This 89-nucleotide sequence from Scyliorhinus torazame belongs to the Rfam family "Vault RNA". For this family Rfam cites "Evolution of Vault RNAs" (Stadler et al., Mol Biol Evol, 2009). Lineage of the source: Eukaryota > Deuterostomia > Selachii > Scyliorhinidae > Scyliorhinus.

RNA sequence: ACGUCCGCUUUAGCUCACUGGUUACUUCGCAGCUUCAACUUAAUUAGAAGUUCGAACCUGUCUCACCGUCGGCGCUGCCUGGCGUUAUU
Numbered sequence: 001a002c003g004u005c006c007g008c009u010u011u012a013g014c015u016c017a018c019u020g021g022u023u024a025c026u027u028c029g030c031a032g033c034u035u036c037a038a039c040u041u042a043a044u045u046a047g048a049a050g051u052u053c054g055a056a057c058c059u060g061u062c063u064c065a066c067c068g069u070c071g072g073c074g075c076u077g078c079c080u081g082g083c084g085u086u087a088u089u
Base pairs, nucleotide, nucleotide: 002084003083004082005081007079013073014072015071019068020067021066026056027055028054029053